[Rfam]
Nucleotides: 572
Stems, first nucleotide, its partner, number of pairs: 015083003020078006027044003031040003046069002050065002053062002125220001128217008139207005145157005158199006170190009238526003243521005249268004254263002298514009312503005330487001332485001334483008347363007365472001367470009376460002382455008392446001394444003398440006405433004410428002415423003537557006
Number, partner (000 for none) and nucleotide at each position: 001000a002000u003000u004000g005000c006000a007000c008000a009000a010000c011000u012000u013000a014000a015083g016082u017081u018000u019000g020078u021077c022076g023075g024074g025073g026000a027044u028043c029042a030000u031040u032039u033038u034000u035000u036000u037000u038033a039032a040031a041000c042029u043028g044027a045000a046069u047068c048000u049000u050065g051064c052000c053062c054061u055000u056000u057000u058000u059000u060000a061054g062053g063000u064051g065050c066000u067000u068047g069046a070000a071000a072000c073025c074024c075023u076022c077021g078020a079000u080000g081017a082016a083015u084000g085000u086000g087000u088000c089000a090000a091000u092000g093000u094000g095000c096000a097000a098000a099000g100000a101000u102000a103000a104000a105000c106000c107000g108000u109000u110000a111000u112000u113000c114000u115000c116000u117000g118000u119000u120000g121000a122000u123000a124000a125220g126000u127000g128217a129216u130215u131214u132213u133212g134211a135210u136000a137000c138000u139207u140206g141205c142204c143203u144000u145157g146156g147155a148154a149153a150000u151000u152000u153149u154148u155147u156146c157145c158199c159198u160197u161196u162195c163194c164000u165000a166000u167000a168000a169000u170190c171189a172188a173187c174186u175185u176184u177183u178182g179000u180000u181000u182178u183177a184176a185175a186174a187173g188172u189171u190170g191000u192000u193000c194163g195162g196161a197160a198159a199158g200000a201000a202000u203143a204142g205141g206140c207139a208000c209000a210135a211134u212133u213132a214131a215130a216129a217128u218000u219000g220125c221000g222000g223000c224000u225000u226000u227000c228000u229000u230000c231000c232000u233000a234000a235000g236000u237000u238526u239525u240524u241000a242000g243521g244520c245519u246518u247517u248000u249268g250267c251266a252265u253000c254263g255262a256000c257000a258000c259000u260000u261000c262255u263254c264000u265252a266251u267250g268249c269000a270000c271000u272000u273000c274000c275000c276000u277000c278000g279000u280000u281000u282000a283000u284000u285000g286000g287000a288000c289000u290000u291000u292000c293000a294000a295000a296000a297000c298514u299513g300512g301511c302510u303509u304508u305507c306506c307000c308000u309000u310000c311000a312503u313502g314501u315500u316499u317000u318000g319000u320000u321000u322000u323000u324000c325000u326000u327000u328000a329000u330487g331000u332485u333000g334483u335482u336481u337480c338479c339478u340477c341476u342000a343000c344000u345000u346000u347363u348362a349361a350360u351359g352358u353357g354000u355000u356000c357353u358352a359351u360350g361349u362348u363347a364000a365472u366000a367470c368469c369468g370467a371466u372465u373464g374463u375462a376460a377459u378000g379000u380000a381000c382455a383454u384453g385452u386451u387450u388449c389448a390000u391000u392446g393000u394444u395443g396442a397000c398440c399439u400438u401437a402436a403435g404000c405433a406432a407431g408430u409000u410428u411427g412000u413000c414000u415423g416422a417421g418000u419000u420000u421417u422416u423415u424000u425000u426000u427411c428410a429000a430408g431407u432406u433405u434000a435403c436402u437401u438400a439399a440398g441000u442396u443395c444394g445000c446392u447000u448389u449388g450387a451386g452385a453384u454383a455382u456000a457000u458000a459377a460376u461000a462375u463374a464373u465372g466371g467370u468369u469368g470367g471000c472365a473000u474000g475000u476341g477340g478339a479338g480337g481336g482335g483334a484000u485332g486000c487330u488000u489000g490000a491000a492000a493000c494000u495000g496000c497000a498000c499316a500315a501314a502313c503312a504000u505000g506306g507305g508304a509303g510302g511301g512300u513299c514298a515000u516000u517247g518246g519245a520244g521243u522000g523000g524240a525239g526238a527000u528000a529000c530000c531000u532000g533000g534000g535000a536000g537557a538556g539555u540554u541553u542552u543000u544000u545000u546000a547000c548000a549000a550000a551000a552542g553541a554540a555539g556538c557537u558000a559000a560000a561000a562000a563000a564000c565000a566000c567000a568000a569000u570000u571000c572000a

The record is a 572-nucleotide RNA sequence from Saccharomyces kudriavzevii, which matches "Small nucleolar RNA snR84" in Rfam. The literature on the family includes a 2003 paper in Nucleic Acids Res by McCutcheon and Eddy, "Computational identification of non-coding RNAs in Saccharomyces cerevisiae by comparative genomics". By type it is an H/ACA-box small nucleolar RNA.